[Rfam]
Lysine riboswitch aptamer: a 165-nucleotide RNA from Mycoplasmopsis cynos.
RNA sequence: AGAUACUAUAGAGGAGCCUUUAGCAUAAGUAAAUAUUUUAGCAGGCAUGCGUAGAAUAUUGAAAGGGUAUAAAGGCCGAAGUACUUAAGACGGCGGUUUUAAGUAUUGGUAGAAAAUCAUAAAAGAUUUCUACUCUUUGGUUUUUCCAUUGGUACUAUAGAUUUA
Numbered sequence: 001a002g003a004u005a006c007u008a009u010a011g012a013g014g015a016g017c018c019u020u021u022a023g024c025a026u027a028a029g030u031a032a033a034u035a036u037u038u039u040a041g042c043a044g045g046c047a048u049g050c051g052u053a054g055a056a057u058a059u060u061g062a063a064a065g066g067g068u069a070u071a072a073a074g075g076c077c078g079a080a081g082u083a084c085u086u087a088a089g090a091c092g093g094c095g096g097u098u099u100u101a102a103g104u105a106u107u108g109g110u111a112g113a114a115a116a117u118c119a120u121a122a123a124a125g126a127u128u129u130c131u132a133c134u135c136u137u138u139g140g141u142u143u144u145u146c147c148a149u150u151g152g153u154a155c156u157a158u159a160g161a162u163u164u165a
Stems, first nucleotide, its partner, number of pairs: 006160006016076006023068002032060008080107012108134007116127003